[Rfam]
RNA sequence: UCCCCGAAAAGGCAAAUUACUCCGAAAGGGUAAGGCGCAAAUCAGAAGGCCUGUAGCUGCCGCUUCAGAAAUAGUAUGGAUGCUUUUGAUGCCGAA
Numbered sequence: 001u002c003c004c005c006g007a008a009a010a011g012g013c014a015a016a017u018u019a020c021u022c023c024g025a026a027a028g029g030g031u032a033a034g035g036c037g038c039a040a041a042u043c044a045g046a047a048g049g050c051c052u053g054u055a056g057c058u059g060c061c062g063c064u065u066c067a068g069a070a071a072u073a074g075u076a077u078g079g080a081u082g083c084u085u086u087u088g089a090u091g092c093c094g095a096a
Base pairs, nucleotide, nucleotide: 012038013037017033018032019031020030022029023028041090042089043088044087046085047084048083050079051078057074058073059072

The family of this 96-nucleotide sequence from Synechococcus sp. PCC 6312 is "c-di-GMP-I riboswitch aptamer". Gene Ontology term of the family: cyclic-di-GMP binding. Rfam's curators write: GEMM was predicted in a large-scale screen for bacterial structured RNA regulatory elements. On this family, see Sudarsan et al., Science 2008: "Riboswitches in Eubacteria Sense the Second Messenger Cyclic Di-GMP".